[Rfam]
RNA sequence: CAGUAGUAGGACAGGGGGCCGUUUCUACUGUCAGAGAUGCUGCCACUCGUCUCACAGUGAACCGGUCUCUUUUCCUGCUAUUCA
Numbered sequence: 001c002a003g004u005a006g007u008a009g010g011a012c013a014g015g016g017g018g019c020c021g022u023u024u025c026u027a028c029u030g031u032c033a034g035a036g037a038u039g040c041u042g043c044c045a046c047u048c049g050u051c052u053c054a055c056a057g058u059g060a061a062c063c064g065g066u067c068u069c070u071u072u073u074c075c076u077g078c079u080a081u082u083c084a
Base pairs, nucleotide, nucleotide: 006078007077008076009075010074015069016068017067018066019065020064021063025059027058028057029056030055031054034053035052036051